[Rfam]
A member of the RNA family "ROOL RNA", 615 nucleotides long.
By type it is a small RNA.
Rfam's curators write: Firmicutes, Fusobacteria (1 example), Tenericutes (1 example).
The family's consensus secondary structure is taken from published work.

RNA sequence: UUCUGAAUAUCUUCAUAUACCGAACCGUGUGCAUAAAGCUCCUGACAGGGCUUCACGGACUGACGUGUGACGGAACGCCACCUAGACAGCUGAUAGGCUGCCUAAGGUAACAGAGCGUCUUAAAAGAGGGCAACUGAUUUUAAGGGAGUACGUAAGACACUUGGUACAACUUCAGGGCGUCAGGUGGGAUAGAAGGAUGAGGGAAAAGGCAGGAUGUUUGGGGCUGUUUCUGUAAAAUAGACGACCACGGUGUGGGAAUAACCGGUGAAUAUCAUAAGGCUUUGCAGGCUUAUGAGGAUAGCGGGAAAAAUGCAGGCAGAGAUUGUGCGGCUGAGCCGAACUAAAGUUCGGGUAAAAAGCCUGACAUCCGUAUACUGGCACAAGUCCGUACACAAUAUUUUAUUAUAAGACGAAUAAUAUAUAAUAUCUGAAUGUCGUGCUGGUGUUGGGGGUACAAAAUAAUCCCCUGUGUACAAGGUUGCGGUGAGAACCGUAAUUCGUAGGGAAGUAUUGGAGUCGCUAUCCAAUGCUCAGACCCUGCGAUACAGUGGCUGAAGAUUCCUGUUUCCUUUGAAGAUACGCUGAAUAAAAGGCGUGGUAUGUGGAGAUGUUCAG
Numbered sequence: 001u002u003c004u005g006a007a008u009a010u011c012u013u014c015a016u017a018u019a020c021c022g023a024a025c026c027g028u029g030u031g032c033a034u035a036a037a038g039c040u041c042c043u044g045a046c047a048g049g050g051c052u053u054c055a056c057g058g059a060c061u062g063a064c065g066u067g068u069g070a071c072g073g074a075a076c077g078c079c080a081c082c083u084a085g086a087c088a089g090c091u092g093a094u095a096g097g098c099u100g101c102c103u104a105a106g107g108u109a110a111c112a113g114a115g116c117g118u119c120u121u122a123a124a125a126g127a128g129g130g131c132a133a134c135u136g137a138u139u140u141u142a143a144g145g146g147a148g149u150a151c152g153u154a155a156g157a158c159a160c161u162u163g164g165u166a167c168a169a170c171u172u173c174a175g176g177g178c179g180u181c182a183g184g185u186g187g188g189a190u191a192g193a194a195g196g197a198u199g200a201g202g203g204a205a206a207a208g209g210c211a212g213g214a215u216g217u218u219u220g221g222g223g224c225u226g227u228u229u230c231u232g233u234a235a236a237a238u239a240g241a242c243g244a245c246c247a248c249g250g251u252g253u254g255g256g257a258a259u260a261a262c263c264g265g266u267g268a269a270u271a272u273c274a275u276a277a278g279g280c281u282u283u284g285c286a287g288g289c290u291u292a293u294g295a296g297g298a299u300a301g302c303g304g305g306a307a308a309a310a311u312g313c314a315g316g317c318a319g320a321g322a323u324u325g326u327g328c329g330g331c332u333g334a335g336c337c338g339a340a341c342u343a344a345a346g347u348u349c350g351g352g353u354a355a356a357a358a359g360c361c362u363g364a365c366a367u368c369c370g371u372a373u374a375c376u377g378g379c380a381c382a383a384g385u386c387c388g389u390a391c392a393c394a395a396u397a398u399u400u401u402a403u404u405a406u407a408a409g410a411c412g413a414a415u416a417a418u419a420u421a422u423a424a425u426a427u428c429u430g431a432a433u434g435u436c437g438u439g440c441u442g443g444u445g446u447u448g449g450g451g452g453u454a455c456a457a458a459a460u461a462a463u464c465c466c467c468u469g470u471g472u473a474c475a476a477g478g479u480u481g482c483g484g485u486g487a488g489a490a491c492c493g494u495a496a497u498u499c500g501u502a503g504g505g506a507a508g509u510a511u512u513g514g515a516g517u518c519g520c521u522a523u524c525c526a527a528u529g530c531u532c533a534g535a536c537c538c539u540g541c542g543a544u545a546c547a548g549u550g551g552c553u554g555a556a557g558a559u560u561c562c563u564g565u566u567u568c569c570u571u572u573g574a575a576g577a578u579a580c581g582c583u584g585a586a587u588a589a590a591a592g593g594c595g596u597g598g599u600a601u602g603u604g605g606a607g608a609u610g611u612u613c614a615g
Base pairs, nucleotide, nucleotide: 007612012607013606014605021598025058026057027056028055029054036053037052038051039050040049060183061182062181063180064179065178076117077116078115083104084103085102087100088099089098090097091096118145119144120143121142122141124139125138128135129134148167149166150165151164192596193572194571195570196569202563203562205560208559209553212369213368214367215366219364221362222361223360224359225358226323227322228321229320230319231318245255246254247253248252262305263304265302266301272295273294274293275292278290279289280288283314284313285312286311326390327389328388329387330386336351337350338349339348340347373445378440379439380438381437383435427535428534429533430532449468450467451466452465470547471546472545479495503539504538505537508531510528511527512526513525514524515523580595581594582593583592